RNA sequence: GGGAAAUGAGGAGUGGUACAGGCUCGCAAAUUUCAAAAUGCGAGAGGGGUGCCCGCCCCAACCAAGCCUGUUACGACACUGGGGCAUCCCCGUGACUCACCAUCUGAUCCC
Numbered sequence: 001g002g003g004a005a006a007u008g009a010g011g012a013g014u015g016g017u018a019c020a021g022g023c024u025c026g027c028a029a030a031u032u033u034c035a036a037a038a039u040g041c042g043a044g045a046g047g048g049g050u051g052c053c054c055g056c057c058c059c060a061a062c063c064a065a066g067c068c069u070g071u072u073a074c075g076a077c078a079c080u081g082g083g084g085c086a087u088c089c090c091c092g093u094g095a096c097u098c099a100c101c102a103u104c105u106g107a108u109c110c111c
Base pairs, nucleotide, nucleotide: 001111002110003109004108014102015101016100017099023044024043025042026041027040046090047089048088049087050086051085052084053083068082069081070080
Rfam assigns this 111-nucleotide sequence from Brachypodium distachyon to the family "Small nucleolar RNA Z279/snoR105/snoR108". The match comes from Rfam's covariance-model search (88 bits). Rfam links the family to the GO terms nucleolus and RNA processing. Its Rfam clan is "snoU13 clan". From the family's description: This family includes the plant snoRNAs known as Z279, snoR105 and snoR108. The source organism's lineage runs through Eukaryota, Magnoliopsida, Liliopsida, Poales and Brachypodium.